c-di-GMP-I riboswitch aptamer: an 86-nucleotide RNA from Carboxydocella thermautotrophica.
Lineage of the source: Bacteria > Bacillati > Bacillota > Clostridia > Carboxydocella thermautotrophica.
Gene Ontology term of the family: cyclic-di-GMP binding.
A search with the family's covariance model found it, with a score of 75 bits.
Nucleotides: 086
Stems, first nucleotide, its partner, number of pairs: 012037002017032006040080004045076003048071003055066004
Number, partner (000 for none) and nucleotide at each position: 001000c002000u003000u004000u005000g006000c007000u008000c009000a010000g011000g012037g013036c014000a015000a016000c017032u018031u019030g020029g021028u022027c023000g024000a025000a026000a027022g028021g029020c030019c031018a032017a033000g034000a035000c036013g037012c038000a039000a040080a041079g042078c043077c044000a045076c046075g047074g048071g049070c050069c051000u052000g053000u054000a055066g056065c057064u058063c059000a060000g061000a062000u063058g064057a065056g066055u067000a068000u069050g070049g071048c072000a073000g074047c075046c076045g077043g078042g079041u080040u081000a082000c083000c084000a085000a086000a